[Rfam]
RNA sequence: GCAGGUGAAUGCAACGUCAAGCGAUGGGCGUUGUGCUCCAAUUUGUCCUUCUUCCUUUUUUGAAUUGAUGCAUAGCAAAUUUGAUUCCUACGACACCGGCUUUUAGCCGGUUUUU
Numbered sequence: 001g002c003a004g005g006u007g008a009a010u011g012c013a014a015c016g017u018c019a020a021g022c023g024a025u026g027g028g029c030g031u032u033g034u035g036c037u038c039c040a041a042u043u044u045g046u047c048c049u050u051c052u053u054c055c056u057u058u059u060u061u062g063a064a065u066u067g068a069u070g071c072a073u074a075g076c077a078a079a080u081u082u083g084a085u086u087c088c089u090a091c092g093a094c095a096c097c098g099g100c101u102u103u104u105a106g107c108c109g110g111u112u113u114u115u
Base pairs, nucleotide, nucleotide: 001046002045003044004043007038008037010035011034012033013032014031015030016029017028018027062087063086064085065084066083067082069077070076071075095111096110097109098108099107100106101105
Notes:
A member of the RNA family "Fumarate/nitrate reductase regulator sRNA" from Erwinia tasmaniensis, 115 nucleotides long. The family's RNA type in Rfam is small RNA. The base pairs follow the family's consensus structure, which is taken from published work. The organism belongs to Erwinia, within Bacteria. On this family, see Durand and Storz, Mol Microbiol 2010: "Reprogramming of anaerobic metabolism by the FnrS small RNA".